[Rfam]
RNA sequence: UUAGCUACUUUAGACGGUGUUUGUAGACAUAUCAACAUUAUGGAUGCAAACAAUAACCAAGUUUGCGUCUAUGAUGGCUAAAGUACUUUGUACUGUUUUCAACCAGCCGCGUAGAUGAAAAAAUCUAAGCGGCUGCUAAAAUCAAUCAAUAAUCAAUAAGAUUCGCGCCUCAUUAGAUUUUUAUCAUCUAAU
Numbered sequence: 001u002u003a004g005c006u007a008c009u010u011u012a013g014a015c016g017g018u019g020u021u022u023g024u025a026g027a028c029a030u031a032u033c034a035a036c037a038u039u040a041u042g043g044a045u046g047c048a049a050a051c052a053a054u055a056a057c058c059a060a061g062u063u064u065g066c067g068u069c070u071a072u073g074a075u076g077g078c079u080a081a082a083g084u085a086c087u088u089u090g091u092a093c094u095g096u097u098u099u100c101a102a103c104c105a106g107c108c109g110c111g112u113a114g115a116u117g118a119a120a121a122a123a124u125c126u127a128a129g130c131g132g133c134u135g136c137u138a139a140a141a142u143c144a145a146u147c148a149a150u151a152a153u154c155a156a157u158a159a160g161a162u163u164c165g166c167g168c169c170u171c172a173u174u175a176g177a178u179u180u181u182u183a184u185c186a187u188c189u190a191a192u
Stems, first nucleotide, its partner, number of pairs: 001081007011071006019051007028042003054065003088152004105134006112127003156178002161174001
Rfam assigns this 192-nucleotide RNA from Desemzia incerta to the family "Enterococcus sRNA 2410". The organism belongs to Desemzia, within Bacteria. The match comes from Rfam's covariance-model search (73 bits). By type it is a small RNA. Rfam 15.1 lists 74 matches to the family in 56 species. Rfam describes the family as follows. Produced as 2 transcripts on Northern blot. Expressed in mid, late exponential and early stationary phases of growth. Expression remained uniform under daptomycin exposure.